[Rfam]
Nucleotides: 190
Base pairs, nucleotide, nucleotide: 026040027039028038042095043094044093045092046091047090048089049088050087051086059085060084061083096190097189100186101185102184
Number, partner (000 for none) and nucleotide at each position: 001000u002000u003000g004000g005000g006000c007000g008000u009000c010000a011000u012000u013000g014000g015000g016000g017000a018000g019000u020000a021000g022000c023000c024000g025000c026040c027039c028038g029000c030000g031000g032000u033000u034000u035000c036000a037000g038028c039027g040026g041000g042095g043094g044093a045092u046091g047090c048089g049088u050087c051086a052000a053000c054000a055000g056000a057000c058000u059085u060084g061083g062000g063000g064000g065000a066000a067000g068000g069000c070000u071000c072000g073000a074000a075000g076000c077000c078000u079000u080000c081000c082000g083061c084060c085059a086051u087050g088049g089048c090047g091046u092045a093044u094043c095042c096190g097189g098000c099000a100186g101185c102184a103000g104000c105000u106000u107000g108000g109000c110000g111000a112000g113000a114000c115000c116000u117000u118000u119000g120000g121000c122000a123000g124000g125000u126000c127000c128000g129000c130000g131000u132000c133000c134000g135000u136000c137000c138000u139000u140000g141000c142000a143000g144000g145000g146000u147000c148000g149000g150000g151000c152000a153000u154000g155000c156000g157000g158000c159000u160000u161000g162000c163000c164000a165000u166000c167000g168000g169000u170000u171000g172000u173000u174000c175000g176000c177000c178000c179000g180000a181000c182000c183000c184102u185101g186100c187000g188000c189097c190096c
Rfam assigns this 190-nucleotide sequence from Zavarzinia compransoris to the family "Manganese Mn2+ riboswitch aptamer (yybP-ykoY)". From the family's description: This RNA was originally discovered in E. coli during a large scale screen and was named SraF. The family was later found to exist upstream of related families of protein genes in many bacteria, including the the yybP and ykoK genes in B. subtilis. The specific functions of these proteins are unknown, but this structured RNA element may be involved in their genetic regulation as a riboswitch. The pairing is the family consensus, mapped onto this sequence. The family has 29 seed sequences and 1,126 matches in Rfam 15.1.